[Rfam]
RNA: Small nucleolar RNA U49
RNA sequence: CACCUAUGAGGAAGAAAUCAUUAUAGGAAAUGAUACCUACAUUUUAAACAUCAUCUUGGUU
Numbered sequence: 001c002a003c004c005u006a007u008g009a010g011g012a013a014g015a016a017a018u019c020a021u022u023a024u025a026g027g028a029a030a031u032g033a034u035a036c037c038u039a040c041a042u043u044u045u046a047a048a049c050a051u052c053a054u055c056u057u058g059g060u061u
Base pairs, nucleotide, nucleotide: 014055015054027045028044029043030042031041032040